The record is a 360-nucleotide RNA sequence from Aminobacter sp. MSH1, which matches "Alphaproteobacteria transfer-messenger RNA" in Rfam.
The organism belongs to Aminobacter, within Bacteria.
The base pairs follow the family's consensus structure, which is taken from published work.
[Rfam]
RNA sequence: GACCUUUCCUUUUUCGCCGAGCCUCCCUAUAUUCGAUCCGUCAGCUUGACUGACUAUGGCGAUAAACUGCCGAUGUAAUAAGCCAUUCGGACCCGGGGGCGGUACCCGGCGCCUCCACCAAAAGCCGCCGCGCAGUGAGCGACGGCUUUUGUUGGGGGCGAAAUAGGAUCGACGAGGGUGUAAAGAUCGGACUUUUGCUCGGCAUUGUACCACCGUUAUCGGGCUAAACUUGUAGUUGCAAACGACAACUAUGCGGAAGCACGUCUCGCAGCGUAAGCUGUGCGAUAGCUUCAAAUUAAGCCCUAGAGGUUCGCACUUCUAGGCGGGGUUCGGAGGUACCUGGCAACAGAAACCUCCACU
Numbered sequence: 001g002a003c004c005u006u007u008c009c010u011u012u013u014u015c016g017c018c019g020a021g022c023c024u025c026c027c028u029a030u031a032u033u034c035g036a037u038c039c040g041u042c043a044g045c046u047u048g049a050c051u052g053a054c055u056a057u058g059g060c061g062a063u064a065a066a067c068u069g070c071c072g073a074u075g076u077a078a079u080a081a082g083c084c085a086u087u088c089g090g091a092c093c094c095g096g097g098g099g100c101g102g103u104a105c106c107c108g109g110c111g112c113c114u115c116c117a118c119c120a121a122a123a124g125c126c127g128c129c130g131c132g133c134a135g136u137g138a139g140c141g142a143c144g145g146c147u148u149u150u151g152u153u154g155g156g157g158g159c160g161a162a163a164u165a166g167g168a169u170c171g172a173c174g175a176g177g178g179u180g181u182a183a184a185g186a187u188c189g190g191a192c193u194u195u196u197g198c199u200c201g202g203c204a205u206u207g208u209a210c211c212a213c214c215g216u217u218a219u220c221g222g223g224c225u226a227a228a229c230u231u232g233u234a235g236u237u238g239c240a241a242a243c244g245a246c247a248a249c250u251a252u253g254c255g256g257a258a259g260c261a262c263g264u265c266u267c268g269c270a271g272c273g274u275a276a277g278c279u280g281u282g283c284g285a286u287a288g289c290u291u292c293a294a295a296u297u298a299a300g301c302c303c304u305a306g307a308g309g310u311u312c313g314c315a316c317u318u319c320u321a322g323g324c325g326g327g328g329u330u331c332g333g334a335g336g337u338a339c340c341u342g343g344c345a346a347c348a349g350a351a352a353c354c355u356c357c358a359c360u
Stems, first nucleotide, its partner, number of pairs: 040054005058199005070190005083178002087175003093109005110160007200215003205226001207224001210222002326341004332357006
It scores 310 bits against the family's covariance model. The family's RNA type in Rfam is non-coding RNA gene.